[Rfam]
RNA sequence: GCGCCCUGCCUUUCAGGCAUCCUCUCCUAAAACUCAGUAGGCCGGUCGAAAGAUCGGCCUUUUUUUUUCGUCCGG
Numbered sequence: 001g002c003g004c005c006c007u008g009c010c011u012u013u014c015a016g017g018c019a020u021c022c023u024c025u026c027c028u029a030a031a032a033c034u035c036a037g038u039a040g041g042c043c044g045g046u047c048g049a050a051a052g053a054u055c056g057g058c059c060u061u062u063u064u065u066u067u068u069c070g071u072c073c074g075g
Stems, first nucleotide, its partner, number of pairs: 008018004039060009